[Rfam]
RNA sequence: GUGCUAUAGGAUAGAACAGUGUCCCACACAAUUUAAUCCAUCUGUUUCACUUUGUCAGCAGUCUCAAUUGGUUUCUCGCUGAUCAUUUUAUGAUGGGAAAUAA
Numbered sequence: 001g002u003g004c005u006a007u008a009g010g011a012u013a014g015a016a017c018a019g020u021g022u023c024c025c026a027c028a029c030a031a032u033u034u035a036a037u038c039c040a041u042c043u044g045u046u047u048c049a050c051u052u053u054g055u056c057a058g059c060a061g062u063c064u065c066a067a068u069u070g071g072u073u074u075c076u077c078g079c080u081g082a083u084c085a086u087u088u089u090a091u092g093a094u095g096g097g098a099a100a101u102a103a
Base pairs, nucleotide, nucleotide: 037097038096039095040094041093042092054083055082056081057080058079059078061076
The family of this 103-nucleotide sequence from Raphanus sativus is "Small nucleolar RNA snoR99". The source organism's lineage runs through Eukaryota, Streptophyta, Streptophytina, Brassiceae and Raphanus. By type it is an H/ACA-box small nucleolar RNA. The literature on the family includes a 2002 paper in Curr Biol by Marker et al., "Experimental RNomics: identification of 140 candidates for small non-messenger RNAs in the plant Arabidopsis thaliana". Its family is annotated with nucleolus and RNA processing in the Gene Ontology.